A member of the RNA family "MIR480 microRNA precursor family" from Populus trichocarpa, 144 nucleotides long. It is one of the family's seed sequences.
[Rfam]
RNA sequence: UGAUCUGUUUUGAACAGAUUCUCAUUUAGUUGUGUCAGAUUUAUACUUGACUGCUCAAAAUCAUCUAUUAUUGCAAGCCUAACCACAUCAUUGACAUUGAAAAACAGAGGACAACUACCAUGUAAAUAAUAAUUUUUUGAGAUU
Numbered sequence: 001u002g003a004u005c006u007g008u009u010u011u012g013a014a015c016a017g018a019u020u021c022u023c024a025u026u027u028a029g030u031u032g033u034g035u036c037a038g039a040u041u042u043a044u045a046c047u048u049g050a051c052u053g054c055u056c057a058a059a060a061u062c063a064u065c066u067a068u069u070a071u072u073g074c075a076a077g078c079c080u081a082a083c084c085a086c087a088u089c090a091u092u093g094a095c096a097u098u099g100a101a102a103a104a105c106a107g108a109g110g111a112c113a114a115c116u117a118c119c120a121u122g123u124a125a126a127u128a129a130u131a132a133u134u135u136u137u138u139g140a141g142a143u144u
Stems, first nucleotide, its partner, number of pairs: 004142003012133001014130001019125001023122003027117005
Dot-bracket structure: ...(((.....(.(....(...(((.(((((.................................................................................)))))..)))..)....)..)......)))..
The literature on the family includes a 2005 paper in Plant Cell by Lu et al., "Novel and mechanical stress-responsive MicroRNAs in Populus trichocarpa that are absent from Arabidopsis". The organism belongs to Populus, within Eukaryota.